A member of the RNA family "drz-agam-1 ribozyme" from Hermetia illucens, 79 nucleotides long. The family's consensus secondary structure is taken from published work. Its family is annotated with catalytic activity in the Gene Ontology. A reference for the family is Webb et al. (2009), "Widespread occurrence of self-cleaving ribozymes", Science.
RNA sequence: UACUACCAAACCCUAUCUCUACCUUCAUGUGGUGACCGCUGGAAGCUUUUUCUUAACGAAAAACUACAGACGGAGAAGG
Numbered sequence: 001u002a003c004u005a006c007c008a009a010a011c012c013c014u015a016u017c018u019c020u021a022c023c024u025u026c027a028u029g030u031g032g033u034g035a036c037c038g039c040u041g042g043a044a045g046c047u048u049u050u051u052c053u054u055a056a057c058g059a060a061a062a063a064c065u066a067c068a069g070a071c072g073g074a075g076a077a078g079g
Stems, first nucleotide, its partner, number of pairs: 012079003016075001018073002021033003045065001047063006